Shown here is a 133-nucleotide RNA sequence from Deinococcus radiodurans, a member of the family "SAM riboswitch aptamer (S box leader)". The family's consensus secondary structure is taken from published work.
RNA sequence: CCUUUAUCCAGAGUCGGCGCAGGGACCUGGCCCCAUGACCGCCGCAGCAACCGGCCCUCAUCACGGCAGCGGUGCUUUCCAGACCCGCGCGAGCAGCGCCCGACGAUGGGCGGCGCCGCGGGAACGAUAAAGG
Number, nucleotide and partner (000 for none) at each position: 001c133002c132003u131004u130005u129006a128007u127008c126009c000010a000011g000012a000013g045014u000015c044016g043017g042018c041019g000020c000021a000022g033023g032024g031025a000026c000027c000028u082029g000030g080031c024032c023033c022034c000035a000036u000037g000038a000039c000040c000041g018042c017043c016044g015045c013046a076047g075048c074049a073050a000051c072052c071053g000054g067055c066056c065057c000058u000059c000060a000061u000062c000063a000064c000065g056066g055067c054068a000069g000070c000071g052072g051073u049074g048075c047076u046077u000078u000079c000080c030081a000082g028083a000084c122085c121086c120087g119088c118089g117090c000091g000092a000093g000094c000095a000096g000097c000098g000099c000100c000101c000102g000103a000104c000105g000106a000107u000108g000109g000110g000111c000112g000113g000114c000115g000116c000117c089118g088119c087120g086121g085122g084123a000124a000125c000126g008127a007128u006129a005130a004131a003132g002133g001